[Rfam]
Description:
The record is a 135-nucleotide RNA from Heterocephalus glaber, which matches "Small Cajal body specific RNA 11" in Rfam. Pairs were carried over by alignment from the consensus structure, which was predicted with RNAalifold. It is annotated as a small Cajal body RNA. From the family's description: scaRNAs are a specific class of small nuclear RNAs which localise to the Cajal bodies and guide the modification of RNA polymerase II transcribed spliceosomal RNAs U1, U2, U4, U5 and U12.

RNA sequence: UUGUCCUGGCCUAUGCCUUUCCUGCUCACUUGUGCCCAGUUCUAACAGGGUAUGGGGUAGGACACAAAGCAAUCUCCCUCUCAGUUAAGGAGGGCCAUCCAAACAGGGCUGCUCUUAAAAGCACACAAGGACAAU
Numbered sequence: 001u002u003g004u005c006c007u008g009g010c011c012u013a014u015g016c017c018u019u020u021c022c023u024g025c026u027c028a029c030u031u032g033u034g035c036c037c038a039g040u041u042c043u044a045a046c047a048g049g050g051u052a053u054g055g056g057g058u059a060g061g062a063c064a065c066a067a068a069g070c071a072a073u074c075u076c077c078c079u080c081u082c083a084g085u086u087a088a089g090g091a092g093g094g095c096c097a098u099c100c101a102a103a104c105a106g107g108g109c110u111g112c113u114c115u116u117a118a119a120a121g122c123a124c125a126c127a128a129g130g131a132c133a134a135u
Stems, first nucleotide, its partner, number of pairs: 002064007010057002024053001026052001029049005077130003084122003090116006098108003
Dot-bracket structure: .(((((((.((............(.(..(((((...........)))))..))..)))))))))............(((....(((...((((((..(((.....)))..))))))...))).....))).....